[Rfam]
RNA sequence: GCAUGGGUUUGGAUUUAUGGCAGGCCUGUCCCUGUAGGCCUCUCAUAGUGUCUUAUGCCAGAGCAAACUGUGACCCUGAACCAUUGCCUGGUCUCUGUCCAUAGGCUUCUGGCACCGAGGCAGGUUACACAGCA
Numbered sequence: 001g002c003a004u005g006g007g008u009u010u011g012g013a014u015u016u017a018u019g020g021c022a023g024g025c026c027u028g029u030c031c032c033u034g035u036a037g038g039c040c041u042c043u044c045a046u047a048g049u050g051u052c053u054u055a056u057g058c059c060a061g062a063g064c065a066a067a068c069u070g071u072g073a074c075c076c077u078g079a080a081c082c083a084u085u086g087c088c089u090g091g092u093c094u095c096u097g098u099c100c101a102u103a104g105g106c107u108u109c110u111g112g113c114a115c116c117g118a119g120g121c122a123g124g125u126u127a128c129a130c131a132g133c134a
Stems, first nucleotide, its partner, number of pairs: 001058004005053004015048006022041003025037001071127005082117001087112002090107005
Shown here is a 134-nucleotide RNA sequence from Octodon degus, a member of the family "Small nucleolar RNA SNORA42/SNORA80 family". From the family's description: The members of this family belong to the H/ACA class of snoRNAs that guide the sites of modification of uridines to pseudouridines. For this family Rfam cites "A computational screen for mammalian pseudouridylation guide H/ACA RNAs" (Schattner et al., RNA, 2006). By type it is an H/ACA-box small nucleolar RNA.